RNA: Glycine riboswitch aptamer
RNA sequence: ACACCUGCCGCGGGAGAGCUCCCGCGUCAUACCGACGAGGGACGCCGAAGGAGCAACCGCCCCGGAAUCUCUCAGGCCACCGGACCGUGGCAGGAAA
Numbered sequence: 001a002c003a004c005c006u007g008c009c010g011c012g013g014g015a016g017a018g019c020u021c022c023c024g025c026g027u028c029a030u031a032c033c034g035a036c037g038a039g040g041g042a043c044g045c046c047g048a049a050g051g052a053g054c055a056a057c058c059g060c061c062c063c064g065g066a067a068u069c070u071c072u073c074a075g076g077c078c079a080c081c082g083g084a085c086c087g088u089g090g091c092a093g094g095a096a097a
Stems, first nucleotide, its partner, number of pairs: 006092008020042004044077003047073002051071003057065002